Nucleotides: 093
Stems, first nucleotide, its partner, number of pairs: 001093002004090005009084002
Number, partner (000 for none) and nucleotide at each position: 001093g002092a003000u004090u005089g006088g007087c008086a009084a010083g011000a012000a013000u014000g015000a016000u017000g018000a019000a020000a021000c022000a023000a024000u025000u026000a027000g028000a029000u030000g031000u032000c033000u034000g035000a036000a037000u038000g039000g040000a041000g042000a043000a044000a045000u046000c047000c048000u049000u050000g051000a052000u053000c054000u055000c056000a057000a058000a059000c060000u061000u062000u063000u064000a065000g066000g067000c068000u069000u070000a071000u072000u073000g074000a075000u076000a077000u078000u079000c080000u081000g082000a083010c084009u085000u086008u087007g088006c089005c090004a091000u092002u093001c

Rfam assigns this 93-nucleotide RNA from Actinidia chinensis to the family "Small nucleolar RNA Z266".
Gene Ontology terms of the family: nucleolus and RNA processing.
Pairs were carried over by alignment from the consensus structure, which was predicted with PFOLD.
The literature on the family includes a 2003 paper in Nucleic Acids Res by Chen et al., "The high diversity of snoRNAs in plants: identification and comparative study of 120 snoRNA genes from Oryza sativa".